[Rfam]
RNA sequence: GUUACAAGCCGGGUUAUCGCCUUUCGCGUUGCGAUGGGAGGAAAGUCCGGACAGCGCAGAGCAAUACACCGGUGAAUAGCCGGGUGUUCCGCCACCGGCGGGGCAACAGACAGUGCCACAGAAAAUAACUGUCCUGUUUUGGCAGGAUGAGGGUGAAAAUGUGAGGUAAGAGCUCACGGUAUUUGACAGUAAUGUUGAAUACGGGUAAACCUUGUAUGCUGAAAUACCAUGUAAAUCCUGCUUUUUAAAACAACCUGUUUUAAAAUGUGAGCGGCUCGUUUACAAUUCGGUUCUGGUAAUUAUCGGAACAGGAUGACAGGAAGGGUAGGUAGAUCGAUUCAUUGAGGUAACUCUUUGAACAGAUAAAUGAUAACCAUCCCGCCCCGUGCGGGAUACAGAAUCCGGCUUACAGGCUUGUAACAUUU
Dot-bracket structure: ((((((((((((((((((.(((.((((...)))).)))....[[[.[[[[[((((........((((((((((.....)))))(((((((((.....)))))))).)((...(((((...........(((((((((....)))))))..)).......((((((.......)))))).(((((((((....)))))))))..)))..)))))))))))))...((((.......(((((............................................................((((.......)))).)))))......)))).......(((..(((....)))..)))..........))))))).........................]]]]]]]].).))))))))))....
Rfam assigns this 425-nucleotide RNA sequence from Niabella drilacis to the family "Bacterial RNase P class A". Ribonuclease P (RNase P) is a ubiquitous endoribonuclease, found in archaea, bacteria and eukarya as well as chloroplasts and mitochondria. The organism belongs to Niabella, within Bacteria.